[Rfam]
RNA: c-di-GMP-I riboswitch aptamer
RNA sequence: UUUUAUAUUCGGCAAACUACUUGAAAGGGUAGGACGCAAAACUAAAGGGGCUAAAUCAUUCGUGACACGCCAGCCAGUUGCAGUC
Numbered sequence: 001u002u003u004u005a006u007a008u009u010c011g012g013c014a015a016a017c018u019a020c021u022u023g024a025a026a027g028g029g030u031a032g033g034a035c036g037c038a039a040a041a042c043u044a045a046a047g048g049g050g051c052u053a054a055a056u057c058a059u060u061c062g063u064g065a066c067a068c069g070c071c072a073g074c075c076a077g078u079u080g081c082a083g084u085c
Base pairs, nucleotide, nucleotide: 012037013036017032018031019030020029021028022027040079041078042077043076047075048074049071050070051069056065057064058063